Rfam assigns this 78-nucleotide RNA from Hermetia illucens to the family "drz-agam-1 ribozyme". The source organism's lineage runs through Eukaryota, Panarthropoda, Insecta, Hermetiinae and Hermetia. The literature on the family includes a 2009 paper in Science by Webb et al., "Widespread occurrence of self-cleaving ribozymes". The match comes from Rfam's covariance-model search (38 bits).
RNA sequence: UACUACCAAUCCCUAUCUCCACCUCCACGUGGUGACUGCUGCGAGCUUUUCUUAACGAAAAGCUACAGACUGAGAAGG
Numbered sequence: 001u002a003c004u005a006c007c008a009a010u011c012c013c014u015a016u017c018u019c020c021a022c023c024u025c026c027a028c029g030u031g032g033u034g035a036c037u038g039c040u041g042c043g044a045g046c047u048u049u050u051c052u053u054a055a056c057g058a059a060a061a062g063c064u065a066c067a068g069a070c071u072g073a074g075a076a077g078g
Base pairs, nucleotide, nucleotide: 012078013077014076016074018072021033022032023031044064045063046062047061048060049059050058051057